[Rfam]
RNA sequence: CAUUGUAAACAUGGGAGCUGCAACAGCGGCUGAGAGUGAAGCGGAUGCUUCAGACCAUUGAACCUGAUCUGGGUAAUGCCAGCGUAGGAAACAUACAUUAGUAAUGU
Numbered sequence: 001c002a003u004u005g006u007a008a009a010c011a012u013g014g015g016a017g018c019u020g021c022a023a024c025a026g027c028g029g030c031u032g033a034g035a036g037u038g039a040a041g042c043g044g045a046u047g048c049u050u051c052a053g054a055c056c057a058u059u060g061a062a063c064c065u066g067a068u069c070u071g072g073g074u075a076a077u078g079c080c081a082g083c084g085u086a087g088g089a090a091a092c093a094u095a096c097a098u099u100a101g102u103a104a105u106g107u
Stems, first nucleotide, its partner, number of pairs: 006095002011058004017030005037052005063088004069082004
About this RNA:
Rfam assigns this 107-nucleotide RNA from Dethiosulfatibacter aminovorans to the family "TPP riboswitch aptamer (THI element)". It scores 64 bits against the family's covariance model.